Shown here is a 373-nucleotide RNA sequence from Candidatus Zymogenus saltonus, a member of the family "Bacterial RNase P class A".
The base pairs follow the family's consensus structure, which is taken from published work.
[Rfam]
RNA sequence: GGAGCGGGCAAGGCGGUCGCCGGCGGAUUGCAACAGAUCCGCGGGAGGAAAGUCCGAGCUCCAUAGGGCGAAGGUGCUGGGUAACACCCAGUGGGGGCAACCCCAAGGAAAGUGCCGCAGAAAAUAUACCGCCGUGAAACAUUGUUUCCCGGUAAGGGUGAAAAGGCGAGGUAAGAGCUCACCGCGGUCCGGGCGACCGGACCGGCACGGUAAACCCCACCUGGAGCAAGACCAAAUAGGGAGGCUUUGGCCGGCCCGGCUCGCCUCCGGGUAGGUCGCUUGAGGCCGCGGGCAACCGCGGUCGUAGAUGAAUGAUCGCCGCCCCCGACCUUGCGUCGGGGGAACAGAACUCGGCUUACUGCCCGCUCCGGUU
Numbered sequence: 001g002g003a004g005c006g007g008g009c010a011a012g013g014c015g016g017u018c019g020c021c022g023g024c025g026g027a028u029u030g031c032a033a034c035a036g037a038u039c040c041g042c043g044g045g046a047g048g049a050a051a052g053u054c055c056g057a058g059c060u061c062c063a064u065a066g067g068g069c070g071a072a073g074g075u076g077c078u079g080g081g082u083a084a085c086a087c088c089c090a091g092u093g094g095g096g097g098c099a100a101c102c103c104c105a106a107g108g109a110a111a112g113u114g115c116c117g118c119a120g121a122a123a124a125u126a127u128a129c130c131g132c133c134g135u136g137a138a139a140c141a142u143u144g145u146u147u148c149c150c151g152g153u154a155a156g157g158g159u160g161a162a163a164a165g166g167c168g169a170g171g172u173a174a175g176a177g178c179u180c181a182c183c184g185c186g187g188u189c190c191g192g193g194c195g196a197c198c199g200g201a202c203c204g205g206c207a208c209g210g211u212a213a214a215c216c217c218c219a220c221c222u223g224g225a226g227c228a229a230g231a232c233c234a235a236a237u238a239g240g241g242a243g244g245c246u247u248u249g250g251c252c253g254g255c256c257c258g259g260c261u262c263g264c265c266u267c268c269g270g271g272u273a274g275g276u277c278g279c280u281u282g283a284g285g286c287c288g289c290g291g292g293c294a295a296c297c298g299c300g301g302u303c304g305u306a307g308a309u310g311a312a313u314g315a316u317c318g319c320c321g322c323c324c325c326c327g328a329c330c331u332u333g334c335g336u337c338g339g340g341g342g343a344a345c346a347g348a349a350c351u352c353g354g355c356u357u358a359c360u361g362c363c364c365g366c367u368c369c370g371g372u373u
Stems, first nucleotide, its partner, number of pairs: 001369010012320007020045002023042006050357003054354005059226004067257002072222005077091005092106001093104004107217002112215002114211003129157002131153004136148004165183002168180003184206001185204008230277004240268006249261004284303008